[Rfam]
RNA sequence: ACAAGAACCUUUUGAAUCAAAUUGUGUAGUGAUUCAAAAGGUUCUC
Numbered sequence: 001a002c003a004a005g006a007a008c009c010u011u012u013u014g015a016a017u018c019a020a021a022u023u024g025u026g027u028a029g030u031g032a033u034u035c036a037a038a039a040g041g042u043u044c045u046c
Stems, first nucleotide, its partner, number of pairs: 004045016

The record is a 46-nucleotide RNA sequence from Azima tetracantha, which matches "Plastid-ccsA-ndhD-2 3UTR RNA" in Rfam. From the family's description: Plastid ccsA-ndhD-2 is a non-coding RNA (ncRNA) recognised in plastids. It was found in the three prime untranslated region (3UTR) of ccsA and ndhD genes, its 3UTR location suggests a role in transcript maturation. The source organism's lineage runs through Eukaryota, Mesangiospermae, Pentapetalae, malvids and Azima. For this family Rfam cites "Retrograde signaling in plants: A critical review focusing on the GUN pathway and beyond" (Richter et al., Plant Commun, 2023). The family's consensus secondary structure was predicted with LocARNA.